Rfam assigns this 84-nucleotide sequence from Streptomyces seoulensis to the family "nrdJ RNA". The family's consensus secondary structure is taken from published work.

RNA sequence: ACCUGUCGCGGGGUCGCAGCUGAGGCUGCCCGCGGCACCAGACAGAACACAUGCCCUGGGAACAUCGGGGCAUUUCAGGGCGUU
Number, nucleotide and partner (000 for none) at each position: 001a000002c000003c000004u037005g036006u035007c034008g033009c032010g031011g030012g000013g000014u000015c000016g029017c028018a027019g026020c025021u000022g000023a000024g000025g020026c019027u018028g017029c016030c011031c010032g009033c008034g007035g006036c005037a004038c000039c000040a000041g000042a000043c000044a000045g000046a000047a000048c000049a000050c000051a073052u072053g071054c070055c069056c068057u067058g066059g000060g000061a000062a000063c000064a000065u000066c058067g057068g056069g055070g054071c053072a052073u051074u000075u000076c000077a000078g000079g000080g000081c000082g000083u000084u000